Rfam assigns this 171-nucleotide RNA sequence from Sutterella wadsworthensis to the family "Group II catalytic intron D1-D4-3". It scores 131 bits against the family's covariance model. The literature on the family includes a 2001 paper in Trends Genet by Bonen and Vogel, "The ins and outs of group II introns". The pairing is the family consensus, mapped onto this sequence.
RNA sequence: UGCGUCGCGAGGCGUAGGCUGAAAGAAGCUGGAGGCAAACCCUUGAGCUGAUGAACAAGAACCUCAUCAGGCAUACGACGGCGGAUAAGCUCGCAAGGCAGAGUGAAGUCCGAUAACUGCACGGAGCCGUUGGUGUAAAUGAGGCUGCUACAUGAGGGGAAAGAGCGUGUU
Numbered sequence: 001u002g003c004g005u006c007g008c009g010a011g012g013c014g015u016a017g018g019c020u021g022a023a024a025g026a027a028g029c030u031g032g033a034g035g036c037a038a039a040c041c042c043u044u045g046a047g048c049u050g051a052u053g054a055a056c057a058a059g060a061a062c063c064u065c066a067u068c069a070g071g072c073a074u075a076c077g078a079c080g081g082c083g084g085a086u087a088a089g090c091u092c093g094c095a096a097g098g099c100a101g102a103g104u105g106a107a108g109u110c111c112g113a114u115a116a117c118u119g120c121a122c123g124g125a126g127c128c129g130u131u132g133g134u135g136u137a138a139a140u141g142a143g144g145c146u147g148c149u150a151c152a153u154g155a156g157g158g159g160a161a162a163g164a165g166c167g168u169g170u171u
Base pairs, nucleotide, nucleotide: 001016002015003014004013005012006011028171030169031168036163040158041157042156043155044154045153046149047148048147050145062144063143064142065141066140071136072135073134076132077131078130079129080128081127082126083111084110085109086108089104090103091102092101